[Rfam]
Description
The family of this 38-nucleotide RNA sequence from [Enterobacter] lignolyticus is "JUMPstart RNA". A search with the family's covariance model found it, with a score of 45 bits. The family's consensus secondary structure is taken from published work. The family's RNA type in Rfam is cis-regulatory element.

RNA sequence: UGGCGCUCUGGUAGCUGUAGGCCAGGGGCGGUAGCGUU
Numbered sequence: 001u002g003g004c005g006c007u008c009u010g011g012u013a014g015c016u017g018u019a020g021g022c023c024a025g026g027g028g029c030g031g032u033a034g035c036g037u038u
Stems, first nucleotide, its partner, number of pairs: 008025005
Dot-bracket structure: .......(((((........))))).............